[Rfam]
RNA sequence: GGAUGUGAGGGCGAUCUGGCUGCGACAUCUGUCACCCCAUUGAUCGCUAGGGUUGAUUCGGCUGAUCUGGCUGGCUAGGCGGGUGUCCCCUUCCUCCCUCACCAUUCCACAUCUGUCCCUCCCGAAGCUGCGCGCUCGGUUGAAGAGGACGAGCCUCCCCGGUAGAAGAGUACCGUUCGUCGGUUCCAAGGGUUUACGAGUAGCUGCGCUCCCCUGCUAGAACCUCCAAACAUGCGUAGGGAAGUCAAAGCUCCGAGACUUCAGACACAUCCAAGUGCGGCACUGCACGUGGCAGCCUGCCUUGUUUU
Number, nucleotide and partner (000 for none) at each position: 001g108002g107003a106004u000005g102006u101007g100008a099009g098010g097011g096012c000013g093014a092015u000016c000017u000018g090019g089020c000021u000022g000023c000024g087025a086026c085027a084028u083029c082030u081031g080032u079033c078034a000035c074036c073037c070038c069039a068040u000041u000042g067043a066044u065045c064046g062047c061048u060049a000050g000051g000052g000053u000054u000055g000056a000057u000058u000059c000060g048061g047062c046063u000064g045065a044066u043067c042068u039069g038070g037071c000072u000073g036074g035075c000076u000077a000078g033079g032080c031081g030082g029083g028084u027085g026086u025087c024088c000089c019090c018091u000092u014093c013094c000095u000096c011097c010098c009099u008100c007101a006102c005103c000104a000105u000106u003107c002108c001109a000110c000111a000112u000113c000114u000115g000116u000117c170118c168119c000120u166121c165122c139123c138124g137125a136126a000127g135128c134129u000130g000131c000132g000133c000134g128135c127136u125137c124138g123139g122140u162141u161142g160143a000144a000145g000146a000147g158148g157149a156150c000151g000152a000153g000154c000155c000156u149157c148158c147159c000160c142161g141162g140163u000164a000165g121166a120167a000168g118169a000170g117171u000172a000173c000174c000175g000176u000177u000178c000179g000180u000181c000182g000183g000184u000185u000186c000187c000188a000189a000190g000191g000192g000193u000194u000195u000196a000197c000198g000199a000200g000201u000202a000203g000204c000205u248206g000207c000208g000209c244210u243211c000212c241213c240214c239215u238216g237217c236218u000219a000220g000221a000222a000223c000224c000225u000226c000227c000228a000229a000230a000231c000232a000233u000234g000235c000236g217237u216238a215239g214240g213241g212242a000243a210244g209245u000246c000247a000248a205249a000250g000251c000252u000253c000254c000255g000256a000257g000258a000259c000260u000261u000262c000263a000264g000265a000266c000267a000268c000269a000270u000271c000272c000273a308274a307275g306276u000277g303278c000279g301280g300281c299282a000283c295284u294285g293286c292287a000288c000289g000290u000291g000292g286293c285294a284295g283296c000297c000298u000299g281300c280301c279302u000303u277304g000305u000306u275307u274308u273

This 308-nucleotide sequence from Erpetoichthys calabaricus belongs to the Rfam family "7SK RNA". It scores 300 bits against the family's covariance model. Taxonomically the source falls in Erpetoichthys (Eukaryota, Deuterostomia, Euteleostomi, Actinopterygii). Clan: 7SK clan. Rfam describes the family as follows. 7SK was discovered as an abundant small nuclear RNA in the mid-70s but a possible function has only recently been suggested. Two independent studies have found that 7SK RNA binds the CDK9/cyclin T complex (known as elongation factor P-TEFb).